[Rfam]
RNA sequence: AAACAUAUUAAAAAGUUCGCCUAUAUAAUGUCAAAAUAUGGUUGGCAGUAUCUACCCAAACCCGUAAAGUUUGGAACUAUAAGCUUUUAUUGCUUAUUU
Numbered sequence: 001a002a003a004c005a006u007a008u009u010a011a012a013a014a015g016u017u018c019g020c021c022u023a024u025a026u027a028a029u030g031u032c033a034a035a036a037u038a039u040g041g042u043u044g045g046c047a048g049u050a051u052c053u054a055c056c057c058a059a060a061c062c063c064g065u066a067a068a069g070u071u072u073g074g075a076a077c078u079a080u081a082a083g084c085u086u087u088u089a090u091u092g093c094u095u096a097u098u099u
Base pairs, nucleotide, nucleotide: 019084020083022081023080024079025078029047030046031045032044033043034042056074057073058072059071060070061069

This 99-nucleotide RNA from Philodulcilactobacillus myokonensis belongs to the Rfam family "Purine riboswitch aptamer". Rfam links the family to the GO term purine nucleobase biosynthetic process. The base pairs follow the family's consensus structure, which is taken from published work. It scores 63 bits against the family's covariance model.